[Rfam]
RNA sequence: CUAGGGUCCCCCCGCAAUGAUAACUUGUGAACUCGGCCAGGCCCGGAAGGGAGCAACCGCAGCAAGCGACUCGUGUGCCGGGGUGUCGGCUCUAGGGGA
Numbered sequence: 001c002u003a004g005g006g007u008c009c010c011c012c013c014g015c016a017a018u019g020a021u022a023a024c025u026u027g028u029g030a031a032c033u034c035g036g037c038c039a040g041g042c043c044c045g046g047a048a049g050g051g052a053g054c055a056a057c058c059g060c061a062g063c064a065a066g067c068g069a070c071u072c073g074u075g076u077g078c079c080g081g082g083g084u085g086u087c088g089g090c091u092c093u094a095g096g097g098g099a
Stems, first nucleotide, its partner, number of pairs: 004092005010083005015075001017074004024066005034059003042051003
RNA: Bacterial small signal recognition particle RNA
Organism: Shewanella sp. MR-7